[Rfam]
RNA sequence: UUUAGAACUCUAGAUAUAGGUUAAAAACUGAAACAAUGUGUAGGUUGCAAUAAACUUCCAGACAUAUUCUGACUUCUCCGUUUCUACUAAAUUUUGAACUUCAAAAUUGUAGAAUUGGGUUUUGAGCUCUUUAUAAAAGUUUUAGAUCAAAGUCUUAACUUUCCAAC
Dot-bracket structure: .((.(((.(..((((.(.(((((((.(((......(((...(((...........((..((((..((((((.(......(....(...........)....)......)))))))...))))..)).))).)))...)))))))).)).).)))).)...))).)).
Numbered sequence: 001u002u003u004a005g006a007a008c009u010c011u012a013g014a015u016a017u018a019g020g021u022u023a024a025a026a027a028c029u030g031a032a033a034c035a036a037u038g039u040g041u042a043g044g045u046u047g048c049a050a051u052a053a054a055c056u057u058c059c060a061g062a063c064a065u066a067u068u069c070u071g072a073c074u075u076c077u078c079c080g081u082u083u084c085u086a087c088u089a090a091a092u093u094u095u096g097a098a099c100u101u102c103a104a105a106a107u108u109g110u111a112g113a114a115u116u117g118g119g120u121u122u123u124g125a126g127c128u129c130u131u132u133a134u135a136a137a138a139g140u141u142u143u144a145g146a147u148c149a150a151a152g153u154c155u156u157a158a159c160u161u162u163c164c165a166a167c
Stems, first nucleotide, its partner, number of pairs: 002166002005163003009157001012155004017150001019148002021145005027140003036134003042130003056126002060122004066115006073109001080102001085097001